Background: S4-Clostridia ribosomal protein leader: a 62-nucleotide sequence. For this family Rfam cites "Discovery of 20 novel ribosomal leader candidates in bacteria and archaea" (Eckert and Weinberg, BMC Microbiol, 2020).

RNA sequence: GAAAGGCUGCGGAAGUUAUCUGACCCGCGGCUGGGUGUGAAUACCGACACACCUCAAUUAGG
Numbered sequence: 001g002a003a004a005g006g007c008u009g010c011g012g013a014a015g016u017u018a019u020c021u022g023a024c025c026c027g028c029g030g031c032u033g034g035g036u037g038u039g040a041a042u043a044c045c046g047a048c049a050c051a052c053c054u055c056a057a058u059u060a061g062g
Stems, first nucleotide, its partner, number of pairs: 005032008033054007
Dot-bracket structure: ....((((((((............))))))))(((((((........)))))))........